[Rfam]
RNA sequence: CAAGGACGGCGAGGGUAUUCCAAAUCUGUUUAAAAAACCGCCAGCCCUGUCUGGACGCCCCACGAACAUGACCAAUACUGAAAGGUACUGGCGCGCGGUAUCUCCCCCCAAGUACCCAGCCAGUGAAGGUACCGAGGAAUGCGUACCUUUGUUCCACUCCUAAUGGUCUUGACCCGGAUUCAUCCCCCAGAACCCGG
Numbered sequence: 001c002a003a004g005g006a007c008g009g010c011g012a013g014g015g016u017a018u019u020c021c022a023a024a025u026c027u028g029u030u031u032a033a034a035a036a037a038c039c040g041c042c043a044g045c046c047c048u049g050u051c052u053g054g055a056c057g058c059c060c061c062a063c064g065a066a067c068a069u070g071a072c073c074a075a076u077a078c079u080g081a082a083a084g085g086u087a088c089u090g091g092c093g094c095g096c097g098g099u100a101u102c103u104c105c106c107c108c109c110a111a112g113u114a115c116c117c118a119g120c121c122a123g124u125g126a127a128g129g130u131a132c133c134g135a136g137g138a139a140u141g142c143g144u145a146c147c148u149u150u151g152u153u154c155c156a157c158u159c160c161u162a163a164u165g166g167u168c169u170u171g172a173c174c175c176g177g178a179u180u181c182a183u184c185c186c187c188c189a190g191a192a193c194c195c196g197g
Stems, first nucleotide, its partner, number of pairs: 040167004087124004094119001097116001099114003125150008133141001174197004179192003